[Rfam]
RNA sequence: CUGGAAUGAUGUACCUUAGCCAAAUCAGACGUUGAUGUGCUCCAAAAGGUGUUGUCUGCUAAUGCUUUUGUUUGCUGUCAUUUGGAGGCUUUUAAGUUAUUCUGCUUCUGGGCAGUGGCAUAAGUCAAAUGAGGCACCUUUUGUUGAAGUGCAUCUAUGUGACGAUCAAAACAGGGAUUGGUUGCUCUCUGACCAGG
Numbered sequence: 001c002u003g004g005a006a007u008g009a010u011g012u013a014c015c016u017u018a019g020c021c022a023a024a025u026c027a028g029a030c031g032u033u034g035a036u037g038u039g040c041u042c043c044a045a046a047a048g049g050u051g052u053u054g055u056c057u058g059c060u061a062a063u064g065c066u067u068u069u070g071u072u073u074g075c076u077g078u079c080a081u082u083u084g085g086a087g088g089c090u091u092u093u094a095a096g097u098u099a100u101u102c103u104g105c106u107u108c109u110g111g112g113c114a115g116u117g118g119c120a121u122a123a124g125u126c127a128a129a130u131g132a133g134g135c136a137c138c139u140u141u142u143g144u145u146g147a148a149g150u151g152c153a154u155c156u157a158u159g160u161g162a163c164g165a166u167c168a169a170a171a172c173a174g175g176g177a178u179u180g181g182u183u184g185c186u187c188u189c190u191g192a193c194c195a196g197g
Stems, first nucleotide, its partner, number of pairs: 001196004